[Rfam]
RNA sequence: GAAUGAAUAAUUCUCCGAGCCUGGUGACCUGAAGCCAGCCAGGUAUGGUUGCCAGGCCAAUGGGUCUGGCGGGAAACCGCCGGGCCUCCCAUUACGGAAAGGAGAGCACUAUACGCCAGG
Numbered sequence: 001g002a003a004u005g006a007a008u009a010a011u012u013c014u015c016c017g018a019g020c021c022u023g024g025u026g027a028c029c030u031g032a033a034g035c036c037a038g039c040c041a042g043g044u045a046u047g048g049u050u051g052c053c054a055g056g057c058c059a060a061u062g063g064g065u066c067u068g069g070c071g072g073g074a075a076a077c078c079g080c081c082g083g084g085c086c087u088c089c090c091a092u093u094a095c096g097g098a099a100a101g102g103a104g105a106g107c108a109c110u111a112u113a114c115g116c117c118a119g120g
Base pairs, nucleotide, nucleotide: 004113011106012105013104014103015102016101019057020056021055022054023053024052025051026050027049028048029047033044035042062087063086064085065084066083067082068081069080070079071078072077088097089096
Dot-bracket structure: ...(......((((((..(((((((((((...(.(......).)..)))))))))))....(((((((((((....)))))))))))((......))...))))))......).......